Rfam assigns this 391-nucleotide RNA to the family "Bacterial RNase P class A". Rfam's curators write: Ribonuclease P (RNase P) is a ubiquitous endoribonuclease, found in archaea, bacteria and eukarya as well as chloroplasts and mitochondria. The family's RNA type in Rfam is ribozyme. Gene Ontology terms of the family: tRNA processing, ribonuclease P activity and dimeric ribonuclease P complex.
[Rfam]
RNA sequence: AAUGCAGGCCGUUCUAUCGCUCUGGCAACAGGGAGGAAAGUCCGGACAACACAGGGUACCGUACCACCUAACGGGUGGGGGCGCAGGCGGCAACAAUUGCGCUACAGAUAGUGCCGCAGAGAACUAUACCGCCCCGUAACACGUGUGUUACAGGGUAAGGGUGAAAACGCGGGGUAAGAGCCCACGGGCGUAACAGUGAUGUUGCGUUGGGUAAACCUUACGGGUUGAAAAGCCAAAUAGGUUGCAAUUGGCUACGUGUAGCCAGGGGGGCGGCCCGCUCCUCAUUUGCAAUGGGUAGGCAGAUACAGGUUACAGGCGACUGUAAUCGCAGAUAAAUGAUAGAAUCCGCGCUUGCGUGGAACAGAACCCGGCUUACAGGCCUGCAUUUUUU
Numbered sequence: 001a002a003u004g005c006a007g008g009c010c011g012u013u014c015u016a017u018c019g020c021u022c023u024g025g026c027a028a029c030a031g032g033g034a035g036g037a038a039a040g041u042c043c044g045g046a047c048a049a050c051a052c053a054g055g056g057u058a059c060c061g062u063a064c065c066a067c068c069u070a071a072c073g074g075g076u077g078g079g080g081g082c083g084c085a086g087g088c089g090g091c092a093a094c095a096a097u098u099g100c101g102c103u104a105c106a107g108a109u110a111g112u113g114c115c116g117c118a119g120a121g122a123a124c125u126a127u128a129c130c131g132c133c134c135c136g137u138a139a140c141a142c143g144u145g146u147g148u149u150a151c152a153g154g155g156u157a158a159g160g161g162u163g164a165a166a167a168c169g170c171g172g173g174g175u176a177a178g179a180g181c182c183c184a185c186g187g188g189c190g191u192a193a194c195a196g197u198g199a200u201g202u203u204g205c206g207u208u209g210g211g212u213a214a215a216c217c218u219u220a221c222g223g224g225u226u227g228a229a230a231a232g233c234c235a236a237a238u239a240g241g242u243u244g245c246a247a248u249u250g251g252c253u254a255c256g257u258g259u260a261g262c263c264a265g266g267g268g269g270g271c272g273g274c275c276c277g278c279u280c281c282u283c284a285u286u287u288g289c290a291a292u293g294g295g296u297a298g299g300c301a302g303a304u305a306c307a308g309g310u311u312a313c314a315g316g317c318g319a320c321u322g323u324a325a326u327c328g329c330a331g332a333u334a335a336a337u338g339a340u341a342g343a344a345u346c347c348g349c350g351c352u353u354g355c356g357u358g359g360a361a362c363a364g365a366a367c368c369c370g371g372c373u374u375a376c377a378g379g380c381c382u383g384c385a386u387u388u389u390u391u
Base pairs, nucleotide, nucleotide: 001387002386003385004384005383006382007381008380009379010378011376012344013343014342015341016340017339018338020033021032022031023030024029038374039373040372042371043370044369045368047227048226049225050224054276055275056274057273059223060222061221062220063219064078065077066076067075068074079105080103081102082101083100084099085098086097106218107217111216112215113212114211115210129160130159131156132155133154134153136151137150138149139148140147141146168186169185171183172182173181187207189206190205191204192203193202194201195200232300233299234298241292242291243290244289245288246287267281268280269279270278271277308327309326310325311324312323313322314321315320